[Rfam]
RNA sequence: CGUUGAAGGUCUUGGUGUGACGCGGGGAGGUUUUAGUCGGUAGGCGCCAGACCGAACUUCGGUUCGGGGUGGCGAAUCCGACACUGCCCGGGGUGGUUCCCCGGGCGUCUUUUGAAGAUUUCCUCCUCGUUAAC
Numbered sequence: 001c002g003u004u005g006a007a008g009g010u011c012u013u014g015g016u017g018u019g020a021c022g023c024g025g026g027g028a029g030g031u032u033u034u035a036g037u038c039g040g041u042a043g044g045c046g047c048c049a050g051a052c053c054g055a056a057c058u059u060c061g062g063u064u065c066g067g068g069g070u071g072g073c074g075a076a077u078c079c080g081a082c083a084c085u086g087c088c089c090g091g092g093g094u095g096g097u098u099c100c101c102c103g104g105g106c107g108u109c110u111u112u113u114g115a116a117g118a119u120u121u122c123c124u125c126c127u128c129g130u131u132a133a134c
Stems, first nucleotide, its partner, number of pairs: 002134005023129008036082005045074005053066005084107001086106005
This 134-nucleotide sequence from Trachymyrmex cornetzi belongs to the Rfam family "R2 RNA element". Gene Ontology term of the family: regulation of reverse transcription. The match comes from Rfam's covariance-model search (59 bits). By type it is a cis-regulatory element. The base pairs follow the family's consensus structure, which is taken from published work. This family represents the 3' UTR region of the R2 retrotransposable element. This family is known to interact with the R2-encoded reverse transcriptase in a reaction known as target primed reverse transcription (TPRT). A reference for the family is Ruschak et al. (2004), "Secondary structure models of the 3' untranslated regions of diverse R2 RNAs", RNA.